This 139-nucleotide sequence from Panicum miliaceum belongs to the Rfam family "Small nucleolar RNA Z247". Taxonomically the source falls in Panicum sect. Panicum (Eukaryota, Viridiplantae, Spermatophyta, Poales). Pairs were carried over by alignment from the consensus structure, which was predicted with PFOLD. Rfam links the family to the GO terms RNA processing and nucleolus. Rfam 15.1 lists 7,071 matches to the family in 142 species. For this family Rfam cites "The high diversity of snoRNAs in plants: identification and comparative study of 120 snoRNA genes from Oryza sativa" (Chen et al., Nucleic Acids Res, 2003). It is annotated as a C/D-box small nucleolar RNA.
RNA sequence: CCUUUGGACGACGAAGAACUCGUCGGCCACAUCAUCACCGGGCUUGACUCCGACUACAAUCUGAUUGUUUCGGCCGUCUUGGCAUGAGCCGAAUCAAUCACAAUUGCUGAGUUGUAUGCCCAACUCCUUUAUUUUGAGU
Numbered sequence: 001c002c003u004u005u006g007g008a009c010g011a012c013g014a015a016g017a018a019c020u021c022g023u024c025g026g027c028c029a030c031a032u033c034a035u036c037a038c039c040g041g042g043c044u045u046g047a048c049u050c051c052g053a054c055u056a057c058a059a060u061c062u063g064a065u066u067g068u069u070u071c072g073g074c075c076g077u078c079u080u081g082g083c084a085u086g087a088g089c090c091g092a093a094u095c096a097a098u099c100a101c102a103a104u105u106g107c108u109g110a111g112u113u114g115u116a117u118g119c120c121c122a123a124c125u126c127c128u129u130u131a132u133u134u135u136g137a138g139u
Base pairs, nucleotide, nucleotide: 004138005137007135008134088108090106091105092104